A member of the RNA family "Small nucleolar RNA snoR99" from Tripterygium wilfordii, 103 nucleotides long. Rfam classes the family as an H/ACA-box small nucleolar RNA. NCBI's taxonomy places the organism under Eukaryota, Euphyllophyta, Pentapetalae, Celastraceae, Tripterygium. For this family Rfam cites "Experimental RNomics: identification of 140 candidates for small non-messenger RNAs in the plant Arabidopsis thaliana" (Marker et al., Curr Biol, 2002).
RNA sequence: UUGCUUCAGGGCUGAAUAUGUCCCUAAAAUCAAUCCAUCUGAUUCACUUUGUCGGCAGUCUCUGUUACUGGUUUCUUGCUGAUCAUUAGUUGGUGGGAUAUGU
Numbered sequence: 001u002u003g004c005u006u007c008a009g010g011g012c013u014g015a016a017u018a019u020g021u022c023c024c025u026a027a028a029a030u031c032a033a034u035c036c037a038u039c040u041g042a043u044u045c046a047c048u049u050u051g052u053c054g055g056c057a058g059u060c061u062c063u064g065u066u067a068c069u070g071g072u073u074u075c076u077u078g079c080u081g082a083u084c085a086u087u088a089g090u091u092g093g094u095g096g097g098a099u100a101u102g103u
Stems, first nucleotide, its partner, number of pairs: 034097006051083008